This 131-nucleotide RNA sequence from Marihabitans asiaticum belongs to the Rfam family "FMN riboswitch aptamer (RFN element)". The source organism's lineage runs through Bacteria, Actinomycetes, Micrococcales, Intrasporangiaceae and Marihabitans. Its family is annotated with FMN binding in the Gene Ontology. The RFN element is a highly conserved domain that is found frequently in the 5'-untranslated regions of prokaryotic mRNAs that encode for flavin mononucleotide (FMN) biosynthesis and transport proteins. Pairs were carried over by alignment from the consensus structure, which is taken from published work. The match comes from Rfam's covariance-model search (83 bits).

RNA sequence: CACGCACCUCGUGACUCGGUGAGAUCCCGAACCGGCGGUAGAGAGCCCGCGACCCGGCUGCCCAAUGCAGACGGUGAACUCUGGUGAGACCCCAGGGCCGACGGUCAUAGUCCGGACGAGAGGGGUGCGGC
Numbered sequence: 001c002a003c004g005c006a007c008c009u010c011g012u013g014a015c016u017c018g019g020u021g022a023g024a025u026c027c028c029g030a031a032c033c034g035g036c037g038g039u040a041g042a043g044a045g046c047c048c049g050c051g052a053c054c055c056g057g058c059u060g061c062c063c064a065a066u067g068c069a070g071a072c073g074g075u076g077a078a079c080u081c082u083g084g085u086g087a088g089a090c091c092c093c094a095g096g097g098c099c100g101a102c103g104g105u106c107a108u109a110g111u112c113c114g115g116a117c118g119a120g121a122g123g124g125g126u127g128c129g130g131c
Stems, first nucleotide, its partner, number of pairs: 003129008017029003031111002033100002035050004045098002053076001054074002080096005102114003